[Rfam]
RNA sequence: CAAGAAGUUUGAGGCCGUAGCAGAAGCGCUUAUGGCUUGGCUCUGUCAUAUUUCAACAAAUCUGCAAAUUCUGCU
Number, nucleotide and partner (000 for none) at each position: 001c000002a000003a000004g000005a000006a000007g000008u000009u000010u000011g043012a042013g000014g041015c040016c039017g000018u000019a075020g074021c073022a072023g071024a070025a069026g038027c000028g036029c000030u000031u000032a000033u000034g000035g000036c028037u000038u026039g016040g015041c014042u012043c011044u000045g000046u000047c064048a063049u000050a061051u060052u059053u058054c000055a000056a000057c000058a053059a052060a051061u050062c000063u048064g047065c000066a000067a000068a000069u025070u024071c023072u022073g021074c020075u019
RNA: Mammalian CPEB3 ribozyme
Organism: Crocodylus porosus